[Rfam]
RNA sequence: AGCUAACACAGAACUUUUAGAAUCUUGUCUAGAAGGUUUUCUGAAUUUGGUCAGAAAACCCAU
Numbered sequence: 001a002g003c004u005a006a007c008a009c010a011g012a013a014c015u016u017u018u019a020g021a022a023u024c025u026u027g028u029c030u031a032g033a034a035g036g037u038u039u040u041c042u043g044a045a046u047u048u049g050g051u052c053a054g055a056a057a058a059c060c061c062a063u
Base pairs, nucleotide, nucleotide: 035060036059037058038057039056040055041054042053043052044051

This 63-nucleotide sequence from Mus spicilegus belongs to the Rfam family "U7 small nuclear RNA". Pairs were carried over by alignment from the consensus structure, which was predicted with PFOLD. A search with the family's covariance model found it, with a score of 44 bits. NCBI's taxonomy places the organism under Eukaryota, Mammalia, Rodentia, Mus, Mus.